Description: Shown here is an 89-nucleotide RNA sequence from Liquorilactobacillus oeni, a member of the family "RNA anti-toxin A". For this family Rfam cites "Abundance of type I toxin-antitoxin systems in bacteria: searches for new candidates and discovery of novel families" (Fozo et al., Nucleic Acids Res, 2010). Rfam 15.1 lists 190 matches to the family in 120 species. It scores 88 bits against the family's covariance model.
RNA sequence: UAAUAGAAGCAGAAAAAGAAGCCUUGCUUGAACAAGACUUCCCAUGUAGAACCGUUUAAGACGGUGGCAUAACUUAAUACGAUUAAAUA
Numbered sequence: 001u002a003a004u005a006g007a008a009g010c011a012g013a014a015a016a017a018g019a020a021g022c023c024u025u026g027c028u029u030g031a032a033c034a035a036g037a038c039u040u041c042c043c044a045u046g047u048a049g050a051a052c053c054g055u056u057u058a059a060g061a062c063g064g065u066g067g068c069a070u071a072a073c074u075u076a077a078u079a080c081g082a083u084u085a086a087a088u089a
Base pairs, nucleotide, nucleotide: 023036024035025034026033051065052064053063054062055061056060